Acido-Lenti-1 RNA: a 45-nucleotide RNA sequence from Roseibacillus persicicus. A search with the family's covariance model found it, with a score of 40 bits.
RNA sequence: CCCAGGGCGUUGCCCUGGGCUAUCCUAUUUCGCCCCAUUGGGGCU
Numbered sequence: 001c002c003c004a005g006g007g008c009g010u011u012g013c014c015c016u017g018g019g020c021u022a023u024c025c026u027a028u029u030u031c032g033c034c035c036c037a038u039u040g041g042g043g044c045u
Stems, first nucleotide, its partner, number of pairs: 001019008032044005
Taxonomically the source falls in Roseibacillus (Bacteria, Verrucomicrobiota, Verrucomicrobiales, Verrucomicrobiaceae). The family's consensus secondary structure is taken from published work.